[Rfam]
RNA sequence: GGCGUAAAGGGUUCGUAGGCGGUUUUUUAAGUCUGAUGUGAAAGCCCACGGCUUAACCGUGGAAGGUCAUUGGAAACUGGAAGACUUGAGUACAGGAGAGGAAAGUGGAAUUCCUAGUGUAGCGGUGAAAUGCGUAGAUAUUAGGAGGAACACCAGUGGCGAAGGCGGCUUUCUGGCCUGAAACUGACGCUGAUGAACGAAAGCGUGGGGAGCAAACAGGAUUAGAUACCCUGGUAGUCCACGCCGUAAACGUUGAGUGCUAAGUGUCGGGGGAGACCUCGGUGCUGAAGUUAACGCAUUAAGCACUCCGCCUGGGGAGUACGGUCGCAAGACUGAAACUCAAAGGAAU
Numbered sequence: 001g002g003c004g005u006a007a008a009g010g011g012u013u014c015g016u017a018g019g020c021g022g023u024u025u026u027u028u029a030a031g032u033c034u035g036a037u038g039u040g041a042a043a044g045c046c047c048a049c050g051g052c053u054u055a056a057c058c059g060u061g062g063a064a065g066g067u068c069a070u071u072g073g074a075a076a077c078u079g080g081a082a083g084a085c086u087u088g089a090g091u092a093c094a095g096g097a098g099a100g101g102a103a104a105g106u107g108g109a110a111u112u113c114c115u116a117g118u119g120u121a122g123c124g125g126u127g128a129a130a131u132g133c134g135u136a137g138a139u140a141u142u143a144g145g146a147g148g149a150a151c152a153c154c155a156g157u158g159g160c161g162a163a164g165g166c167g168g169c170u171u172u173c174u175g176g177c178c179u180g181a182a183a184c185u186g187a188c189g190c191u192g193a194u195g196a197a198c199g200a201a202a203g204c205g206u207g208g209g210g211a212g213c214a215a216a217c218a219g220g221a222u223u224a225g226a227u228a229c230c231c232u233g234g235u236a237g238u239c240c241a242c243g244c245c246g247u248a249a250a251c252g253u254u255g256a257g258u259g260c261u262a263a264g265u266g267u268c269g270g271g272g273g274a275g276a277c278c279u280c281g282g283u284g285c286u287g288a289a290g291u292u293a294a295c296g297c298a299u300u301a302a303g304c305a306c307u308c309c310g311c312c313u314g315g316g317g318a319g320u321a322c323g324g325u326c327g328c329a330a331g332a333c334u335g336a337a338a339c340u341c342a343a344a345g346g347a348a349u
Base pairs, nucleotide, nucleotide: 001312002311003310009309011198012197013196014195016192018191019190020189022085023084024083025082026081027080028079030078031077032074033073034072035071036070037069038068046062047061048060049059050058051057089185090184091183093180094179095178096177100174101173102172103171104170105169106168107151111147112146113145114144115143116142117141118140122133123132124131159166160165203244204243205242206241207240208239212238213237217233218232219231220230255308256307257306258305259304260303263286264285265284266283267282268281269280270279271278272277290297291296314341315340316339323334324333325332326331
This 349-nucleotide part of an RNA from Haloplasma contractile belongs to the Rfam family "Bacterial small subunit ribosomal RNA". Lineage of the source: Bacteria > Haloplasmatales > Haloplasmataceae > Haloplasma > Haloplasma contractile.